[Rfam]
RNA sequence: UUUGUGCUCUUUGGUCGGGCCAAGGGAGCACGGUAAGAGCCAGCCACCACAGGGUCCGCGCCCUGUGGGAGAACCCUGUUAGCUUAC
Numbered sequence: 001u002u003u004g005u006g007c008u009c010u011u012u013g014g015u016c017g018g019g020c021c022a023a024g025g026g027a028g029c030a031c032g033g034u035a036a037g038a039g040c041c042a043g044c045c046a047c048c049a050c051a052g053g054g055u056c057c058g059c060g061c062c063c064u065g066u067g068g069g070a071g072a073a074c075c076c077u078g079u080u081a082g083c084u085u086a087c
Stems, first nucleotide, its partner, number of pairs: 008027002010024005047068009
Thermales-rpoB RNA: an 87-nucleotide RNA sequence from Thermus sp. CCB_US3_UF1. It is annotated as a cis-regulatory element. The organism belongs to Thermus, within Bacteria.